Nucleotides: 112
Stems, first nucleotide, its partner, number of pairs: 012025001014023002043095005053085003057079003
Number, partner (000 for none) and nucleotide at each position: 001000u002000a003000a004000u005000g006000a007000a008000g009000g010000a011000a012025g013000c014023a015022u016000g017000g018000u019000g020000a021000u022015g023014u024000a025012c026000a027000c028000g029000g030000a031000g032000a033000u034000u035000g036000a037000a038000u039000u040000a041000a042000u043095g044094g045093g046092u047091c048000a049000a050000c051000a052000u053085g054084u055083c056000u057079g058078c059077c060000c061000c062000c063000u064000c065000u066000g067000a068000u069000g070000c071000u072000c073000u074000c075000u076000c077059g078058g079057c080000u081000u082000u083055g084054a085053u086000u087000u088000g089000g090000g091047g092046g093045c094044c095043u096000g097000g098000u099000u100000g101000c102000g103000a104000c105000c106000c107000a108000c109000a110000u111000c112000c

A member of the RNA family "Small nucleolar RNA snoR100" from Morella rubra, 112 nucleotides long. Gene Ontology terms of the family: RNA processing and nucleolus. The family's RNA type in Rfam is H/ACA-box small nucleolar RNA. The family has 9 seed sequences and 1,851 matches in Rfam 15.1. The organism belongs to Morella, within Eukaryota.